[Rfam]
RNA sequence: GCCAAGAGUAGAAGCGUUCAGCAGCCCGCACGGCCGCCCGGAAAUUGCUCUUGGC
Numbered sequence: 001g002c003c004a005a006g007a008g009u010a011g012a013a014g015c016g017u018u019c020a021g022c023a024g025c026c027c028g029c030a031c032g033g034c035c036g037c038c039c040g041g042a043a044a045u046u047g048c049u050c051u052u053g054g055c
Stems, first nucleotide, its partner, number of pairs: 005051006015040001018042002021037002024034003

The record is a 55-nucleotide sequence, which matches "Xanthine riboswitch aptamer (NMT1 RNA)" in Rfam. Pairs were carried over by alignment from the consensus structure, which is taken from published work. The sequence is in the family's curated seed alignment. A reference for the family is Yu and Breaker (2020), "A bacterial riboswitch class senses xanthine and uric acid to regulate genes associated with purine oxidation", RNA.